[Rfam]
RNA sequence: GUCAGGAACCCCCUAGCGAAAGCUAGAGGCUUACGCAAGUAAGCCUGGACUUGACCAGACUCAGCCCUGGGCUUUCUCCCUUGUGGAGAAGGUCAUCGAGCUACGAUAGAUGAGAAGUGUUUGUGUUCCUACCUACAGGUGCGUGCCAGCCUGUAGCUCUAGAAUCCCUGGGUUAAACAGGUGUACGAGGUGAAGCCAGUGCUCAGGGAAAAGUACCGCUCUCUAUCUUUGUCGAGGCAACCAUUAC
Numbered sequence: 001g002u003c004a005g006g007a008a009c010c011c012c013c014u015a016g017c018g019a020a021a022g023c024u025a026g027a028g029g030c031u032u033a034c035g036c037a038a039g040u041a042a043g044c045c046u047g048g049a050c051u052u053g054a055c056c057a058g059a060c061u062c063a064g065c066c067c068u069g070g071g072c073u074u075u076c077u078c079c080c081u082u083g084u085g086g087a088g089a090a091g092g093u094c095a096u097c098g099a100g101c102u103a104c105g106a107u108a109g110a111u112g113a114g115a116a117g118u119g120u121u122u123g124u125g126u127u128c129c130u131a132c133c134u135a136c137a138g139g140u141g142c143g144u145g146c147c148a149g150c151c152u153g154u155a156g157c158u159c160u161a162g163a164a165u166c167c168c169u170g171g172g173u174u175a176a177a178c179a180g181g182u183g184u185a186c187g188a189g190g191u192g193a194a195g196c197c198a199g200u201g202c203u204c205a206g207g208g209a210a211a212a213g214u215a216c217c218g219c220u221c222u223c224u225a226u227c228u229u230u231g232u233c234g235a236g237g238c239a240a241c242c243a244u245u246a247c
Base pairs, nucleotide, nucleotide: 001055002054003053004052005051006050010029011028013026014025016023017022030043031042032041033040058233059232060231063102064101065100067098105227106226107225108224109223110222116220117219118218119217127163128162133156134155135154136153137152138151139150140149143241144240145238146237147236165209166208167207168206169205170204171203172202173201177200178199180197181196182195184193

This 247-nucleotide RNA sequence from Ktedonobacter racemifer belongs to the Rfam family "HNH endonuclease-associated RNA and ORF (HEARO) RNA".
NCBI's taxonomy places the organism under Bacteria, Chloroflexota, Ktedonobacterales, Ktedonobacteraceae, Ktedonobacter racemifer.
Pairs were carried over by alignment from the consensus structure, which is taken from published work.
A reference for the family is Weinberg et al. (2009), "Exceptional structured noncoding RNAs revealed by bacterial metagenome analysis", Nature.